[Rfam]
RNA sequence: GAAAAAAAGUGAGAGCUCUCUUGGCUCCAAUGCUAAAAUAUAGUAAUGAAAAUACCACGACUGCUAGUUCAUGGAUACCCCAAGACGUGAUCACACAUGAUUGAGUAAUGUUGCACGAUCUUAGGGUUUGCAUGAACUUGGAGACGAGGUUUUCAUUACCUUUUUGGUUUCGGGUGAAGGGAGCUCUCAGUUUUCCUUCU
Numbered sequence: 001g002a003a004a005a006a007a008a009g010u011g012a013g014a015g016c017u018c019u020c021u022u023g024g025c026u027c028c029a030a031u032g033c034u035a036a037a038a039u040a041u042a043g044u045a046a047u048g049a050a051a052a053u054a055c056c057a058c059g060a061c062u063g064c065u066a067g068u069u070c071a072u073g074g075a076u077a078c079c080c081c082a083a084g085a086c087g088u089g090a091u092c093a094c095a096c097a098u099g100a101u102u103g104a105g106u107a108a109u110g111u112u113g114c115a116c117g118a119u120c121u122u123a124g125g126g127u128u129u130g131c132a133u134g135a136a137c138u139u140g141g142a143g144a145c146g147a148g149g150u151u152u153u154c155a156u157u158a159c160c161u162u163u164u165u166g167g168u169u170u171c172g173g174g175u176g177a178a179g180g181g182a183g184c185u186c187u188c189a190g191u192u193u194u195c196c197u198u199c200u
Base pairs, nucleotide, nucleotide: 013186014185015184016183017182018181019180020179024175025174026173027172029170036163061143062142064140066138070134071133072132073131078126
This 200-nucleotide RNA from Cannabis sativa belongs to the Rfam family "MIR159 microRNA precursor family". A reference for the family is Jones-Rhoades and Bartel (2004), "Computational identification of plant microRNAs and their targets, including a stress-induced miRNA", Mol Cell. Rfam links the family to the GO terms RISC complex and miRNA-mediated post-transcriptional gene silencing. Rfam 15.1 lists 3,649 matches to the family in 242 species.